[Rfam]
RNA: Small nucleolar RNA SNORA32
Organism: Molossus molossus
RNA sequence: AGAUUACUUAAAAAACAUUAUUACUGCAGUUUCUCAUUUGCUGUGGGCAUGACCACAAUAGUUUCCCACUAGGUUUUCUUUCUGCUACGUUGGUAGCAUUCAGCCUAUUGGGAACAUUU
Numbered sequence: 001a002g003a004u005u006a007c008u009u010a011a012a013a014a015a016c017a018u019u020a021u022u023a024c025u026g027c028a029g030u031u032u033c034u035c036a037u038u039u040g041c042u043g044u045g046g047g048c049a050u051g052a053c054c055a056c057a058a059u060a061g062u063u064u065c066c067c068a069c070u071a072g073g074u075u076u077u078c079u080u081u082c083u084g085c086u087a088c089g090u091u092g093g094u095a096g097c098a099u100u101c102a103g104c105c106u107a108u109u110g111g112g113a114a115c116a117u118u119u
Stems, first nucleotide, its partner, number of pairs: 003050002007046002026041004065112004072105004083098003